RNA sequence: CCUUUCGGGGAGUAGUCCGCCGUCGCAUCGACGGCCCGCGCGUCAACACACUUGGCCGGCCGGCCAUGGUGCGCGGAGGACCGGCGACGGUCC
Dot-bracket structure: ...................(((.........))).((((((((((.......(((((....))))))))))))))).((((((....))))))